[Rfam]
RNA sequence: CCGCGCUCCUGCUCGUGAUCGUCUUCUCAACCUUCACCGGGCAGGCGGAUGAAAGAAGAACCCCCGCGAUGACGUGAAUCGCGGGGGUUCUUC
Numbered sequence: 001c002c003g004c005g006c007u008c009c010u011g012c013u014c015g016u017g018a019u020c021g022u023c024u025u026c027u028c029a030a031c032c033u034u035c036a037c038c039g040g041g042c043a044g045g046c047g048g049a050u051g052a053a054a055g056a057a058g059a060a061c062c063c064c065c066g067c068g069a070u071g072a073c074g075u076g077a078a079u080c081g082c083g084g085g086g087g088u089u090c091u092u093c
Base pairs, nucleotide, nucleotide: 001048002047003046008045009044010043011042012041013040014039015037016036017035018034021031022030055093056092057091058090059089060088061087062086063085064084065083066082067081068080069079070078